[Rfam]
RNA: mir-1 microRNA precursor family
Organism: Leptobrachium leishanense
RNA sequence: GUCAGAUGUGCAUAGAUCCUUACGGUUCAUAUAAAGUGCGUCUUUAUAUGAACCGUAAGGAUCUAUGCACAUCUGAC
Number, nucleotide and partner (000 for none) at each position: 001g000002u000003c000004a000005g000006a000007u071008g070009u069010g068011c067012a066013u065014a064015g063016a062017u061018c060019c059020u058021u057022a056023c055024g054025g053026u000027u051028c050029a049030u048031a047032u000033a000034a000035a000036g000037u000038g000039c000040g000041u000042c000043u000044u000045u000046a000047u031048a030049u029050g028051a027052a000053c025054c024055g023056u022057a021058a020059g019060g018061a017062u016063c015064u014065a013066u012067g011068c010069a009070c008071a007072u000073c000074u000075g000076a000077c000